[Rfam]
RNA sequence: UAGGAGAAGCCGAAAAUCCUUCAAAGAGUAGGUA
Numbered sequence: 001u002a003g004g005a006g007a008a009g010c011c012g013a014a015a016a017u018c019c020u021u022c023a024a025a026g027a028g029u030a031g032g033u034a
Stems, first nucleotide, its partner, number of pairs: 002020004009033003
A member of the RNA family "DUF805b RNA" from Zunongwangia profunda, 34 nucleotides long. The organism belongs to Zunongwangia profunda, within Bacteria. The family is grouped with related families in Rfam's "DUF805 clan". Rfam classes the family as a cis-regulatory element.